The family of this 276-nucleotide RNA from Catagonus wagneri is "Small Cajal body specific RNA 6". The family has 17 seed sequences and 1,309 matches in Rfam 15.1. Pairs were carried over by alignment from the consensus structure, which is taken from published work. The match comes from Rfam's covariance-model search (138 bits).
RNA sequence: GGUCGAUGAUGAUUGGUAAAAGGUCUGAUUGCACUUAAUGUCACAGUCCCUUCCCUGCCCUCAACUCCCAGCAGCCCCUGUUUUCCCUCCCAUCACAUUUAAGUCAUGUGUGUGGGGUAAUGGAGCAGCUGAUAAAUUGGGAUUCUGUCAGCCUGUGUUUCUCAGAGUGUAAGGUUCACAGCUGACAAAUGUCCAACAGAACCAGCUGUACAGGAGACCGAUGAGCGGCAGCCAUGGGUGUGAUGGUGCAUGAUCUCAAGUUUUCAAUCUGAGACC
Numbered sequence: 001g002g003u004c005g006a007u008g009a010u011g012a013u014u015g016g017u018a019a020a021a022g023g024u025c026u027g028a029u030u031g032c033a034c035u036u037a038a039u040g041u042c043a044c045a046g047u048c049c050c051u052u053c054c055c056u057g058c059c060c061u062c063a064a065c066u067c068c069c070a071g072c073a074g075c076c077c078c079u080g081u082u083u084u085c086c087c088u089c090c091c092a093u094c095a096c097a098u099u100u101a102a103g104u105c106a107u108g109u110g111u112g113u114g115g116g117g118u119a120a121u122g123g124a125g126c127a128g129c130u131g132a133u134a135a136a137u138u139g140g141g142a143u144u145c146u147g148u149c150a151g152c153c154u155g156u157g158u159u160u161c162u163c164a165g166a167g168u169g170u171a172a173g174g175u176u177c178a179c180a181g182c183u184g185a186c187a188a189a190u191g192u193c194c195a196a197c198a199g200a201a202c203c204a205g206c207u208g209u210a211c212a213g214g215a216g217a218c219c220g221a222u223g224a225g226c227g228g229c230a231g232c233c234a235u236g237g238g239u240g241u242g243a244u245g246g247u248g249c250a251u252g253a254u255c256u257c258a259a260g261u262u263u264u265c266a267a268u269c270u271g272a273g274a275c276c
Stems, first nucleotide, its partner, number of pairs: 001276004038256001040254003047230001049228002052225001065216004069131004074126002089116004094112005139194001141193003146188001154180004160174003164170001
U88 is small Cajal body specific RNA (scaRNA). scaRNAs are a novel class of small nuclear RNAs which localise to the Cajal bodies. U88 is found associated with both fibrillarin and Gar1p and co-localises with coilin in Cajal bodies.